[Rfam]
RNA sequence: CGGGGAAAGAAGACCCUGUUGAGCUUGACUCUAGUUUGACAUUGUGAAAAGACAUAGAGGGUGUAGCAUAAGUGGGAGCUUCGGCGCCAGUGAAAUACCACUACCUCUAUUGUUUUUUUACUUAAAUAAUUAAGUGGGAUUGAGUCGCAAGACUCACCUUCUAGCUUUAAGCAUCCAUUAGGGUGCGACCCAUGUUAUUGACAUUGUCAAGUGGGGAGUUUGGCUGGGGCGGCACAUCUGUUAAAAGAUAACGCAGGUGUCCUAAGGGGGACUCAAGGAGAACAGAAAUCUCCUGUAGAAUAAAAGGGUAAAAGUCCCCUUGAUUUUGAUUUUCAGUGUGAAUACAAACCAUGAAAGUGUGGCCUAUCGAUCCUUUAGAAUCUCAAGAUUUGAGGCUAGAGGUGCCAGAAAAGUUACCACAGGGAUAACUGGCUUGUGGCAGCCAAGCGUUCAUAGCGACGUUGCUUUUUGAUUCUUCGAUGUCGGCUCUUCCUAUCAUAAUGAAGCAGAAUUCAUUAAGUGUUGGAUUGUUCACCCACUAAUAGGGAACGUGAGCUGGGUUUAGACCGUCGUGAGACAGGUUAGUUUUACCCUA
Dot-bracket structure: ..(((.((......((((.(((((((.((((...(((((((..(((((((((((((((((..........(((((..((....))............))))).))))))).))))))))))...(((((.....((((....((((....))))................(((((......)))))..))))..))))).....)))))))....))))..((((.....))).)((((((...........))))))..((....((((((((.((((((.......))))))...))((......))....))))))....(((..((((.......))))..))).(((....))).))..........((((((..((((.......)))))))))).........)))))..))))))........(.(.(.((((((...((.......))...))))))...)).)..........(((((((((((..((.((((((......))))))...)).(((.(.....).))).....)))))..)..)))).).....(((((((....))).))))....))..))).
RNA: Eukaryotic large subunit ribosomal RNA, nucleotides 2451 to 3045
Organism: Rhizopus delemar